[Rfam]
RNA sequence: GCGGGGAGGUCCACGGUCGCGCCCCUCUCAAGAGGGGUGAGGAAAGUCCGGGCACCGCAGGGCAGGAUGCCAGCUAACGGCUGGUCGGCGAGUCAAGCGCCUGCACGCGCGCCGAGGGCGUGUGGGUGGCGGCGAAGCCGAAGGACAGUGCCACAGAAACCAGACCGCCCACCUCAAACAGUCUUCGGCGCAGACGAGGUGGGUCAGGGUGAAACGGUGCGGUAAGAGCGCACCAGGCCCCCCGGAGACGGAGGGCGUCUGGUAAACCCCAUCCGGUGCAAGACCCGACAGUGCGGUAGGAGCGGCCCGCUCCCGUGACCGCCAGGAUGGUCGCACGAGGCGUGCGGCGACGCGCGUCCCAGAGAGAUGACCGUGACCCCACCCCGGUGGGCCACAGAACCCGGCUUAUCGCCUCCCCGCACCA
Dot-bracket structure: ((((((((((.(((((((.((((((((....))))))))....[[[.[[[[[((((...[[[[.((((((((((.....)))))(((((...............................................)))).)((...(((((............(((((((((((....................)))))))))..)).......((((((.......)))))).(((((.(((....))).)))).)..)))..)))))))))))))...((((.......(((((.(((((.]]]])))))....)))))......))))......((((((((....))))))))..........)))))))........................]]]]]]]]...))))))))))....

Rfam assigns this 424-nucleotide RNA from Deinococcus hopiensis to the family "Bacterial RNase P class A". It scores 245 bits against the family's covariance model. Rfam classes the family as a ribozyme.